Description: A member of the RNA family "tRNA" from Affinundibacterium fentianense, 82 nucleotides long. Rfam's curators write: Transfer RNA (tRNA) molecules are approximately 80 nucleotides in length.

RNA sequence: GCCGAGAUGGCGGAAUUGGUAGACGCACCAGACUCAAAAUCUGGCGCCGCAAGGCGUGCCGGUUCGAUUCCGGCUCUCGGCA
Numbered sequence: 001g002c003c004g005a006g007a008u009g010g011c012g013g014a015a016u017u018g019g020u021a022g023a024c025g026c027a028c029c030a031g032a033c034u035c036a037a038a039a040u041c042u043g044g045c046g047c048c049g050c051a052a053g054g055c056g057u058g059c060c061g062g063u064u065c066g067a068u069u070c071c072g073g074c075u076c077u078c079g080g081c082a
Base pairs, nucleotide, nucleotide: 001081002080003079004078005077006076007075010026011025012024028044029043030042031041032040058074059073060072061071062070
Dot-bracket structure: (((((((..(((...........))).(((((.......))))).............(((((.......)))))))))))).
The family's consensus secondary structure is taken from published work. The organism belongs to Affinundibacterium, within Bacteria. By type it is a transfer RNA.